[Rfam]
RNA sequence: UUGUUUCAAGGGCAAACUCGCUGAAAGGCGGGGACGCAAAACCUCCGGUCUAACUGGGUAUUCCAUACGAUAGCGGGGUUGCCGAU
Numbered sequence: 001u002u003g004u005u006u007c008a009a010g011g012g013c014a015a016a017c018u019c020g021c022u023g024a025a026a027g028g029c030g031g032g033g034a035c036g037c038a039a040a041a042c043c044u045c046c047g048g049u050c051u052a053a054c055u056g057g058g059u060a061u062u063c064c065a066u067a068c069g070a071u072a073g074c075g076g077g078g079u080u081g082c083c084g085a086u
Stems, first nucleotide, its partner, number of pairs: 012037002017032006040080004045076003048071003055065004
RNA: c-di-GMP-I riboswitch aptamer
Organism: Sulfuricella sp.